The record is a 165-nucleotide RNA from Cytobacillus horneckiae, which matches "M-box riboswitch aptamer (ykoK leader)" in Rfam. Its family is annotated with regulation of gene expression and response to magnesium ion in the Gene Ontology. M-box riboswitch, also know as ykoK leader is described as a metaloregulatory RNA that sense divalent metals and function as a genetic control element of genes related to divalent metal transport in bacteria.
[Rfam]
RNA sequence: AUAUAUCCUCGUUAGGUGAGGCUCCUGUGCUGGAGAUACGCUGCUGCCCAAAAAUGUCCAAAGACGCCAAUGGGUCAACAGAAACCAUCGACAUAAGGUGGUUUUUAACGCAGCUGGCUAUGCCUAUGCUGCACAGUGCUAAAGCUCUACGAAUGGAGGAAAAGC
Numbered sequence: 001a002u003a004u005a006u007c008c009u010c011g012u013u014a015g016g017u018g019a020g021g022c023u024c025c026u027g028u029g030c031u032g033g034a035g036a037u038a039c040g041c042u043g044c045u046g047c048c049c050a051a052a053a054a055u056g057u058c059c060a061a062a063g064a065c066g067c068c069a070a071u072g073g074g075u076c077a078a079c080a081g082a083a084a085c086c087a088u089c090g091a092c093a094u095a096a097g098g099u100g101g102u103u104u105u106u107a108a109c110g111c112a113g114c115u116g117g118c119u120a121u122g123c124c125u126a127u128g129c130u131g132c133a134c135a136g137u138g139c140u141a142a143a144g145c146u147c148u149a150c151g152a153a154u155g156g157a158g159g160a161a162a163a164g165c
Stems, first nucleotide, its partner, number of pairs: 006160005011150002013096001015146003020140003025136006032130002040114005046075005055066004081105004087099003116124003